[Rfam]
RNA: mir-156 microRNA precursor family
Organism: Zingiber officinale
RNA sequence: GUGACAGAAGAGAGUGAGCACAUACGGUGCUUUCUUGCAUGAGAGGCUAUUCAUGCUCGAAGCUGUAUGUGCUCAUUUCUCUAUCUGUCAA
Numbered sequence: 001g002u003g004a005c006a007g008a009a010g011a012g013a014g015u016g017a018g019c020a021c022a023u024a025c026g027g028u029g030c031u032u033u034c035u036u037g038c039a040u041g042a043g044a045g046g047c048u049a050u051u052c053a054u055g056c057u058c059g060a061a062g063c064u065g066u067a068u069g070u071g072c073u074c075a076u077u078u079c080u081c082u083a084u085c086u087g088u089c090a091a
Base pairs, nucleotide, nucleotide: 002090003089004088005087006086007085008084010081011080012079013077014076015075016074017073018072019071020070021069023067024066025065